[Rfam]
RNA sequence: GCUCGCGGUCAGCUUUGCGGGGUGGGCAUUCAGCCUGUGCGAGCCGGAGUCGCUGUGCAAACCCACGCAAAACUGACCGCGGUC
Numbered sequence: 001g002c003u004c005g006c007g008g009u010c011a012g013c014u015u016u017g018c019g020g021g022g023u024g025g026g027c028a029u030u031c032a033g034c035c036u037g038u039g040c041g042a043g044c045c046g047g048a049g050u051c052g053c054u055g056u057g058c059a060a061a062c063c064c065a066c067g068c069a070a071a072a073c074u075g076a077c078c079g080c081g082g083u084c
Stems, first nucleotide, its partner, number of pairs: 003082010014071006020064002023060001026058004032054003

Rfam assigns this 84-nucleotide sequence from Megalops atlanticus to the family "mir-19 microRNA precursor family". A search with the family's covariance model found it, with a score of 61 bits. Gene Ontology terms of the family: RISC complex and miRNA-mediated post-transcriptional gene silencing. The family has 106 seed sequences and 2,337 matches in Rfam 15.1. The base pairs follow the family's consensus structure, which was predicted with RNAalifold.